RNA sequence: GCCCAGUGGUUACCAGACCUGACAUUUUCCAUGCGGUGCACUGGUUUUAUUAAAUGGGCAGAAAUAAAAGCUGUGGUAUUUUGCAUGGGGCCAGUACUAUGCUUGUCCCCAUAGCCCGGUCACAGUAACAUUU
Number, nucleotide and partner (000 for none) at each position: 001g059002c058003c057004c056005a000006g000007u000008g000009g000010u000011u000012a045013c044014c043015a042016g041017a000018c000019c036020u035021g034022a000023c033024a000025u000026u000027u000028u000029c000030c000031a000032u000033g023034c021035g020036g019037u000038g000039c000040a000041c016042u015043g014044g013045u012046u000047u000048u000049a000050u000051u000052a000053a000054a000055u000056g004057g003058g002059c001060a000061g000062a000063a000064a000065u000066a000067a000068a000069a000070g000071c125072u000073g123074u122075g121076g120077u119078a000079u000080u000081u000082u000083g115084c114085a112086u111087g110088g109089g107090g106091c105092c000093a103094g102095u101096a000097c000098u000099a000100u000101g095102c094103u093104u000105g091106u090107c089108c000109c088110c087111a086112u085113a000114g084115c083116c000117c000118g000119g077120u076121c075122a074123c073124a000125g071126u000127a000128a000129c000130a000131u000132u000133u000

Rfam assigns this 133-nucleotide sequence from Xenopus tropicalis to the family "Small nucleolar RNA SNORA84". A reference for the family is Marker et al. (2002), "Experimental RNomics: identification of 140 candidates for small non-messenger RNAs in the plant Arabidopsis thaliana", Curr Biol. Its family is annotated with RNA processing and nucleolus in the Gene Ontology. The family's RNA type in Rfam is H/ACA-box small nucleolar RNA. It scores 57 bits against the family's covariance model. The base pairs follow the family's consensus structure, which was predicted with WAR. Rfam 15.1 lists 757 matches to the family in 629 species. Lineage of the source: Eukaryota > Chordata > Pipoidea > Xenopus > Silurana.